[Rfam]
RNA sequence: AUGAACUGCUUCUAGGGUUCCGAUUUAACUAGCGUUUUAAAUGCCUGGUCCAAGAGAAGCAAGCCAAUAGUUAUUAUUGGCUACACGGCGGGAUAAAAGCCCGGGAGAU
Numbered sequence: 001a002u003g004a005a006c007u008g009c010u011u012c013u014a015g016g017g018u019u020c021c022g023a024u025u026u027a028a029c030u031a032g033c034g035u036u037u038u039a040a041a042u043g044c045c046u047g048g049u050c051c052a053a054g055a056g057a058a059g060c061a062a063g064c065c066a067a068u069a070g071u072u073a074u075u076a077u078u079g080g081c082u083a084c085a086c087g088g089c090g091g092g093a094u095a096a097a098a099g100c101c102c103g104g105g106a107g108a109u
Base pairs, nucleotide, nucleotide: 007061008060009059010058011057012056015051016050020048021047022045023042024041025040026039027038028037062082063081064080065079066078067077068076069075084104086107090102091101092100